[Rfam]
RNA sequence: AGGACUUAGCACACAUGUGAACACUGUAAGUUUACCUCCAUGUUCACAGUGGUUAAGUUCUG
Numbered sequence: 001a002g003g004a005c006u007u008a009g010c011a012c013a014c015a016u017g018u019g020a021a022c023a024c025u026g027u028a029a030g031u032u033u034a035c036c037u038c039c040a041u042g043u044u045c046a047c048a049g050u051g052g053u054u055a056a057g058u059u060c061u062g
Stems, first nucleotide, its partner, number of pairs: 002060009017047007
Dot-bracket structure: .(((((((((......(((((((.................)))))))....)))))))))..
A member of the RNA family "mir-27 microRNA precursor family" from Salmo salar, 62 nucleotides long. Lineage of the source: Eukaryota > Deuterostomia > Osteoglossocephalai > Protacanthopterygii > Salmo. Rfam 15.1 lists 1,440 matches to the family in 645 species.